[Rfam]
RNA sequence: CCCUCCGAAGUUUCCCUCAGGAUAGCUGGAGUUGAACAGUUUUAUCAGGUAAAGCGAAUGAUUAGAGGAAUCGGGGGCGCGUUGUCCUCGACCUAUUCUCAAACUUUAAAUGGGUAAGAUCCAUGGUUACUUGGUGAACUUCUGGCAUAAAUGACAACUCUAAGUGGGCCAUUUUUGGUAAGCAGAACUGGCGAUGAGGGAUGAACCUAACGUUGGGUUAAGGUGCUUAACUGCUCGCUCAUCAGAUACCAUAAAGGGUGUUGGUUCAUUUUAACAGCAGGACGGUGGUCAUGGAAGUUGAAAUCCGCUAAGGAGUGUGUAACAACUCACCUGCCGAAUGGACUAGCCCCGAAAAUGGAUGGCCUUAAGCGGGUGACCGAUACCCAACCAUUGUUGCAAUUGUGUUGCAUCAAUGAGUAGGAGGGCAUGGGGCUUGUGAUGAAGCUUUUGGCGUAAGCCCUGGUGAAACGGCUCCUAGUGCAGAU
Numbered sequence: 001c002c003c004u005c006c007g008a009a010g011u012u013u014c015c016c017u018c019a020g021g022a023u024a025g026c027u028g029g030a031g032u033u034g035a036a037c038a039g040u041u042u043u044a045u046c047a048g049g050u051a052a053a054g055c056g057a058a059u060g061a062u063u064a065g066a067g068g069a070a071u072c073g074g075g076g077g078c079g080c081g082u083u084g085u086c087c088u089c090g091a092c093c094u095a096u097u098c099u100c101a102a103a104c105u106u107u108a109a110a111u112g113g114g115u116a117a118g119a120u121c122c123a124u125g126g127u128u129a130c131u132u133g134g135u136g137a138a139c140u141u142c143u144g145g146c147a148u149a150a151a152u153g154a155c156a157a158c159u160c161u162a163a164g165u166g167g168g169c170c171a172u173u174u175u176u177g178g179u180a181a182g183c184a185g186a187a188c189u190g191g192c193g194a195u196g197a198g199g200g201a202u203g204a205a206c207c208u209a210a211c212g213u214u215g216g217g218u219u220a221a222g223g224u225g226c227u228u229a230a231c232u233g234c235u236c237g238c239u240c241a242u243c244a245g246a247u248a249c250c251a252u253a254a255a256g257g258g259u260g261u262u263g264g265u266u267c268a269u270u271u272u273a274a275c276a277g278c279a280g281g282a283c284g285g286u287g288g289u290c291a292u293g294g295a296a297g298u299u300g301a302a303a304u305c306c307g308c309u310a311a312g313g314a315g316u317g318u319g320u321a322a323c324a325a326c327u328c329a330c331c332u333g334c335c336g337a338a339u340g341g342a343c344u345a346g347c348c349c350c351g352a353a354a355a356u357g358g359a360u361g362g363c364c365u366u367a368a369g370c371g372g373g374u375g376a377c378c379g380a381u382a383c384c385c386a387a388c389c390a391u392u393g394u395u396g397c398a399a400u401u402g403u404g405u406u407g408c409a410u411c412a413a414u415g416a417g418u419a420g421g422a423g424g425g426c427a428u429g430g431g432g433c434u435u436g437u438g439a440u441g442a443a444g445c446u447u448u449u450g451g452c453g454u455a456a457g458c459c460c461u462g463g464u465g466a467a468a469c470g471g472c473u474c475c476u477a478g479u480g481c482a483g484a485u
Stems, first nucleotide, its partner, number of pairs: 001425006011024001013022003027162007040119007052107001053105002059101003064096001066094003071091006078084001121145003125140004168192004173187005197208003212388005218382001222378003231375001233374001236371003256350003260347010277334005283307003289301002308312001313328001317326002389415005395409003426480001428477005434471004444464002450459003

The record is a 485-nucleotide part of an RNA from Prorocentrum micans, which matches "Eukaryotic large subunit ribosomal RNA" in Rfam. A reference for the family is Yusupov et al. (2001), "Crystal structure of the ribosome at 5.5 A resolution", Science. The sequence is in the family's curated seed alignment.